mir-9193 microRNA precursor family: a 75-nucleotide RNA sequence from Myotis brandtii. Gene Ontology terms of the family: RISC complex and miRNA-mediated post-transcriptional gene silencing.
RNA sequence: CGGGGGGGGGUGUGUGUCUCUCAGCCCAGAUUGCAAGAGGGCGCAGGCCAGGCUGAGGGACCCGACCGGUGCAUG
Dot-bracket structure: .(.(..((....((.(((((((((((..(.((((........)))).)..))))))))))).)).))..).)...
Notes:
The base pairs follow the family's consensus structure, which was predicted with RNAalifold.